A member of the RNA family "Alphaproteobacteria transfer-messenger RNA" from Roseococcus sp. SYP-B2431, 324 nucleotides long. From the family's description: Bacterial tmRNA, also known as 10Sa RNA or SsrA, is named for its dual tRNA and mRNA-like properties. Its role is to liberate the mRNA from a stalled ribosome. To accomplish this part of the tmRNA is used as a reading frame that ends in a translation stop signal. The broken mRNA is replaced in the ribosome by the tmRNA and translation of the tmRNA leads to addition of a proteolysis tag to the incomplete protein enabling recognition by a protease. The family's RNA type in Rfam is non-coding RNA gene. The source organism's lineage runs through Bacteria, Pseudomonadati, Acetobacterales, Roseomonadaceae and Roseococcus. On this family, see Williams and Bartel, RNA 1996: "Phylogenetic analysis of tmRNA secondary structure". Its Rfam clan is "tRNA clan".
[Rfam]
RNA sequence: CCCCUCGCAUCCGGAACCGGGGAUCGCUAUAUGAGCGGUGCCGCUUGCGGCUAUGGCGAUAAACGUUGCGUGGAAUAAUCGUUACGGACCCGGGGGCAGUGCCCGGCGUCUCCACCACCAUCCGGUCCUUUGUCAGGGAUCAGGUCUUGGGGACGAAACAGGCUCGACGUGCGUGGUAAAGACGUAGCUUUUGCCCGGCAUUGUACCGCCGUUAUCGGGCUAAAUCACAAGUGCCAAUGACAAUGUCCGCGAGGACAUGGCGCUCGCUGCCUAGGAAUAGGUAAGCGCGGUUCGGGGGGCGCCGGGCAACAGAAGCCCCCCACU
Dot-bracket structure: .......................................((((....))))...(((((.....(((((((........(((.(((...(((((.......)))))(((((((...................................)))))))............))))))........)))))))..)))))((((.[.[..[[)))).....]].].].................................................................[[[[..((((((.]]]]...........))))))...